[Rfam]
Record summary:
Shown here is a 62-nucleotide RNA from Aotus nancymaae, a member of the family "U7 small nuclear RNA". From the family's description: Animal histone pre-mRNAs are spliced by a different mechanism than nuclear pre-mRNAs and self-splicing introns. The base pairs follow the family's consensus structure, which was predicted with PFOLD.

RNA sequence: AAGUGUUACAGCUCCUUUAGAAUUUAUCUAGCAGGCUUUCCGGUUUUUGCCGGAAAGCACCC
Numbered sequence: 001a002a003g004u005g006u007u008a009c010a011g012c013u014c015c016u017u018u019a020g021a022a023u024u025u026a027u028c029u030a031g032c033a034g035g036c037u038u039u040c041c042g043g044u045u046u047u048u049g050c051c052g053g054a055a056a057g058c059a060c061c062c
Stems, first nucleotide, its partner, number of pairs: 035058010
Dot-bracket structure: ..................................((((((((((....))))))))))....